Rfam assigns this 76-nucleotide RNA sequence from Jaculus jaculus to the family "mir-3473 microRNA precursor family". Gene Ontology terms of the family: RISC complex, miRNA-mediated post-transcriptional gene silencing and cellular response to mechanical stimulus. The base pairs follow the family's consensus structure, which was predicted with RNAalifold. It scores 74 bits against the family's covariance model.
[Rfam]
RNA sequence: ACUGCUAAGCCAUCGCUCCAGCCCAGUAUUAACUUAUUAAAAGUAUAUUCAGGGGCUGGAGCGAUGGCUUAGCAGC
Numbered sequence: 001a002c003u004g005c006u007a008a009g010c011c012a013u014c015g016c017u018c019c020a021g022c023c024c025a026g027u028a029u030u031a032a033c034u035u036a037u038u039a040a041a042a043g044u045a046u047a048u049u050c051a052g053g054g055g056c057u058g059g060a061g062c063g064a065u066g067g068c069u070u071a072g073c074a075g076c
Base pairs, nucleotide, nucleotide: 002075003074004073005072006071007070008069009068010067011066012065013064014063015062016061017060018059019058020057021056022055023054024053